[Rfam]
Nucleotides: 126
Stems, first nucleotide, its partner, number of pairs: 004054002007051002013045009022035003068119004075112002078108002081101003085097002088094002
Number, partner (000 for none) and nucleotide at each position: 001000a002000a003000a004054g005053u006000u007051u008050g009000a010000u011000c012000a013045g014044a015043g016042c017041a018040g019039g020038a021037a022035g023034c024033c025000u026000a027000a028000a029000a030000a031000a032000u033024g034023g035022u036000u037021u038020u039019u040018c041017u042016g043015u044014u045013u046000a047000u048000a049000a050008u051007a052000u053005a054004u055000c056000c057000a058000g059000u060000a061000g062000g063000a064000a065000c066000u067000g068119g069118g070117u071116u072000c073000a074000u075112u076111g077000a078108c079107a080000a081101g082100g083099g084000c085097c086096a087000u088094g089093a090000a091000a092000g093089u094088c095000u096086u097085g098000a099083c100082c101081u102000a103000a104000c105000c106000a107079u108078g109000a110000a111076c112075a113000c114000a115000u116071a117070a118069c119068c120000c121000u122000a123000c124000u125000c126000u

Small nucleolar RNA SNORA11: a 126-nucleotide sequence from Erinaceus europaeus. The family's consensus secondary structure was predicted with RNAalifold. A reference for the family is Gu et al. (2005), "A novel experimental approach for systematic identification of box H/ACA snoRNAs from eukaryotes", Nucleic Acids Res. Rfam links the family to the GO terms nucleolus and RNA processing. Rfam's curators write: U107 (SNORA11) is a member of the H/ACA class of snoRNAs that guide the sites of modification of uridines to pseudouridines. This snoRNA was identified by RT-PCR from blood cells and its expression confirmed by Northern blot analysis. There is no predicted target for this guide snRNA.